[Rfam]
RNA sequence: AUUUGCUUGACGGAGUGCGGUUUGAGACCGCUGAGAUUGCGUCUUUGGUGGGUGCGCCAUUGGUGUUCCACAUGAAACUUAUAACGCAAAAUCCGUUGAACCUGAACAGGUUAGUCCCUGCGUAGGAAUCAAGCACGUCCGCCAU
Numbered sequence: 001a002u003u004u005g006c007u008u009g010a011c012g013g014a015g016u017g018c019g020g021u022u023u024g025a026g027a028c029c030g031c032u033g034a035g036a037u038u039g040c041g042u043c044u045u046u047g048g049u050g051g052g053u054g055c056g057c058c059a060u061u062g063g064u065g066u067u068c069c070a071c072a073u074g075a076a077a078c079u080u081a082u083a084a085c086g087c088a089a090a091a092u093c094c095g096u097u098g099a100a101c102c103u104g105a106a107c108a109g110g111u112u113a114g115u116c117c118c119u120g121c122g123u124a125g126g127a128a129u130c131a132a133g134c135a136c137g138u139c140c141g142c143c144a145u
Stems, first nucleotide, its partner, number of pairs: 006133005011095004016089001017031005038088005101126004107120004
Notes:
Rfam assigns this 145-nucleotide RNA sequence from Moraxella caviae to the family "TPP riboswitch aptamer (THI element)". Rfam describes the family as follows. Vitamin B(1) in its active form thiamin pyrophosphate (TPP) is an essential coenzyme that is synthesised by coupling of pyrimidine and thiazole moieties in bacteria. The previously detected thiamin-regulatory element, thi box was extended, resulting in a new, highly conserved RNA secondary structure, the THI element, which is widely distributed in eubacteria and also occurs in some archaea. Analysis of operon structures identified a large number of new candidate thiamin-regulated genes, mostly transporters, in various prokaryotic organisms. The THI element is a riboswitch that directly binds to TPP to regulate gene expression through a variety of mechanisms in archaea, bacteria and eukaryotes. through a variety of mechanisms in archaea, bacteria and eukaryotes. Tandem TPP riboswitches have been reported where both TPP riboswitches respond independently to TPP. The structure of TPP riboswitch has been reported for Escherichia coli and Arabidopsis thaliana.